[Rfam]
RNA sequence: CAGGCGGAAACUGAAAAGCCUUAUAUAGAGUAAGUA
Numbered sequence: 001c002a003g004g005c006g007g008a009a010a011c012u013g014a015a016a017a018g019c020c021u022u023a024u025a026u027a028g029a030g031u032a033a034g035u036a
Base pairs, nucleotide, nucleotide: 002021003020004019005018010035011034012033